[Rfam]
RNA sequence: UUGAUUAUUAUCACCAUUCAUCGAGUGGUGGGUUAAGCACGUCAUAUUUCCAGACAAAGCAACCCGCCGCGAGGCGGGUUUU
Numbered sequence: 001u002u003g004a005u006u007a008u009u010a011u012c013a014c015c016a017u018u019c020a021u022c023g024a025g026u027g028g029u030g031g032g033u034u035a036a037g038c039a040c041g042u043c044a045u046a047u048u049u050c051c052a053g054a055c056a057a058a059g060c061a062a063c064c065c066g067c068c069g070c071g072a073g074g075c076g077g078g079u080u081u082u
Stems, first nucleotide, its partner, number of pairs: 011031007061080008